[Rfam]
RNA sequence: AGUCGACUUUUUCUCAGAGAAAGUUUUUUGAGGGCCAGCAUAAAUAAUUCAUAUGAGAUGGCGCACUCCAUCCCUUGCGGACAAGGGAGACCCAAGCGCCCGCAGGUUGCUAACGGAUUAGAUGAAGCUUCAGGCGACAGUAGGUGAAAGUGAAAGCACGAGACCUUCAUAAAGAACCUUGCUAAAAGGUUCACGGCUAAGUCUAUAUAGAUAUGCCGAAACGUGCCGAGAAGGGUCAAAUACACGAAAAGGACUCAGACAAAGUCUUGAAAAAGACGACUUGUAGGGCGUGUUGAACGCAAGUAAAAAGUCUGAUUGUAGGCUGAAAUGCUUACAGAGUAAUCUAAUCC
Numbered sequence: 001a002g003u004c005g006a007c008u009u010u011u012u013c014u015c016a017g018a019g020a021a022a023g024u025u026u027u028u029u030g031a032g033g034g035c036c037a038g039c040a041u042a043a044a045u046a047a048u049u050c051a052u053a054u055g056a057g058a059u060g061g062c063g064c065a066c067u068c069c070a071u072c073c074c075u076u077g078c079g080g081a082c083a084a085g086g087g088a089g090a091c092c093c094a095a096g097c098g099c100c101c102g103c104a105g106g107u108u109g110c111u112a113a114c115g116g117a118u119u120a121g122a123u124g125a126a127g128c129u130u131c132a133g134g135c136g137a138c139a140g141u142a143g144g145u146g147a148a149a150g151u152g153a154a155a156g157c158a159c160g161a162g163a164c165c166u167u168c169a170u171a172a173a174g175a176a177c178c179u180u181g182c183u184a185a186a187a188g189g190u191u192c193a194c195g196g197c198u199a200a201g202u203c204u205a206u207a208u209a210g211a212u213a214u215g216c217c218g219a220a221a222c223g224u225g226c227c228g229a230g231a232a233g234g235g236u237c238a239a240a241u242a243c244a245c246g247a248a249a250a251g252g253a254c255u256c257a258g259a260c261a262a263a264g265u266c267u268u269g270a271a272a273a274a275g276a277c278g279a280c281u282u283g284u285a286g287g288g289c290g291u292g293u294u295g296a297a298c299g300c301a302a303g304u305a306a307a308a309a310g311u312c313u314g315a316u317u318g319u320a321g322g323c324u325g326a327a328a329u330g331c332u333u334a335c336a337g338a339g340u341a342a343u344c345u346a347a348u349c350c
Stems, first nucleotide, its partner, number of pairs: 007023006060100005071088004106131001109128003115350009156226004174192006194218004201212004255315006264277004279304006316337007
RNA: GEBRO RNA